[Rfam]
RNA sequence: AUCAGGAAGAGGAAAAAAAUGAGCAUCUAAGAGCAUUGAGCAUGGGAAUAUGGAGGAAGGCCUAAACUAGUGUGUCCCUGUCCAACUAGGGUCCAACAUCUGUUUUGGAAUUUUCCCAAUGCCUCCCAUGCCCAUUGUUCUUCCGUUUUCCUUCCUCUCCCUUAUGACC
Dot-bracket structure: ........(.(((..((...(((..(..(((((((.((.((((((((.(((.(.((((((..................................................))))))).)))..)))))))).)).)))))))..)..))).))..))).).........